[Rfam]
RNA: M-box riboswitch aptamer (ykoK leader)
Organism: Desulfallas thermosapovorans
RNA sequence: AUUGUUCUUCGUUAGGUGAGGCUACUAUGCAGACACAGGCCACUGCCCGGAAAUGUCGAGAGACAGUAACGGGUUAGCAGGUAUUACCGAAUUAAGGUUUUACCUAAUGUGGCUGAGAUAAAUUCUCUAGCUGUAUAGAGCCAAAACUGCACGAGUGAAGAAGGCG
Numbered sequence: 001a002u003u004g005u006u007c008u009u010c011g012u013u014a015g016g017u018g019a020g021g022c023u024a025c026u027a028u029g030c031a032g033a034c035a036c037a038g039g040c041c042a043c044u045g046c047c048c049g050g051a052a053a054u055g056u057c058g059a060g061a062g063a064c065a066g067u068a069a070c071g072g073g074u075u076a077g078c079a080g081g082u083a084u085u086a087c088c089g090a091a092u093u094a095a096g097g098u099u100u101u102a103c104c105u106a107a108u109g110u111g112g113c114u115g116a117g118a119u120a121a122a123u124u125c126u127c128u129a130g131c132u133g134u135a136u137a138g139a140g141c142c143a144a145a146a147c148u149g150c151a152c153g154a155g156u157g158a159a160g161a162a163g164g165c166g
Stems, first nucleotide, its partner, number of pairs: 005162006011152002013095001015148003020142003025138008039113005045074005054065004080104004086098003115127003